Rfam assigns this 64-nucleotide RNA sequence to the family "DUF3800-VIII RNA".
Rfam's curators put it in the seed alignment.
Bacteroidetes, Cyanobacteria, Firmicutes, Planctomycetes (1 example), Proteobacteria, Tenericutes (1 example).
The family's consensus secondary structure is taken from published work.
RNA sequence: AUUCCCCUGCUUUGCCUAAGUUCUGCGUUCCACGCGGGGCACUUUGUAGGCAAAGCGAGGGAUU
Numbered sequence: 001a002u003u004c005c006c007c008u009g010c011u012u013u014g015c016c017u018a019a020g021u022u023c024u025g026c027g028u029u030c031c032a033c034g035c036g037g038g039g040c041a042c043u044u045u046g047u048a049g050g051c052a053a054a055g056c057g058a059g060g061g062a063u064u
Stems, first nucleotide, its partner, number of pairs: 001064001003062004008057009020040009